[Rfam]
RNA sequence: UUCUUAUCCAGAGAGGCGGAGGGACUGGCCCUAUGAAGCCUCGGCAACAGACUUUCGAGUCCAUGUGCCAACUCCAGCAAGCGUUAAGCUUGAAAAGAUAAGAA
Numbered sequence: 001u002u003c004u005u006a007u008c009c010a011g012a013g014a015g016g017c018g019g020a021g022g023g024a025c026u027g028g029c030c031c032u033a034u035g036a037a038g039c040c041u042c043g044g045c046a047a048c049a050g051a052c053u054u055u056c057g058a059g060u061c062c063a064u065g066u067g068c069c070a071a072c073u074c075c076a077g078c079a080a081g082c083g084u085u086a087a088g089c090u091u092g093a094a095a096a097g098a099u100a101a102g103a104a
Stems, first nucleotide, its partner, number of pairs: 001104008013042005021031003025077004043069004048065002050061004073096001079091004
Shown here is a 104-nucleotide RNA from Salipaludibacillus agaradhaerens, a member of the family "SAM riboswitch aptamer (S box leader)".
The organism belongs to Salipaludibacillus, within Bacteria.
The SAM riboswitch is found upstream of a number of genes which code for proteins involved in methionine or cysteine biosynthesis in Gram-positive bacteria.